Small nucleolar RNA SNORD21: a 97-nucleotide RNA from Pitta sordida. On this family, see Qu et al., Nucleic Acids Res 1994: "U21, a novel small nucleolar RNA with a 13 nt. complementarity to 28S rRNA, is encoded in an intron of ribosomal protein L5 gene in chicken and mammals". The source organism's lineage runs through Eukaryota, Craniata, Gnathostomata, Sauropsida and Pitta.
RNA sequence: GCUACGUGAUGAUUCUCGCAGUGACUGAACACGCUGUAGUUGGUCCAUGGUGUGUUUGUGAUGUGCUGCAGUGUUUCAAGACGGGACUGAUGGCAGC
Numbered sequence: 001g002c003u004a005c006g007u008g009a010u011g012a013u014u015c016u017c018g019c020a021g022u023g024a025c026u027g028a029a030c031a032c033g034c035u036g037u038a039g040u041u042g043g044u045c046c047a048u049g050g051u052g053u054g055u056u057u058g059u060g061a062u063g064u065g066c067u068g069c070a071g072u073g074u075u076u077c078a079a080g081a082c083g084g085g086a087c088u089g090a091u092g093g094c095a096g097c
Stems, first nucleotide, its partner, number of pairs: 001094004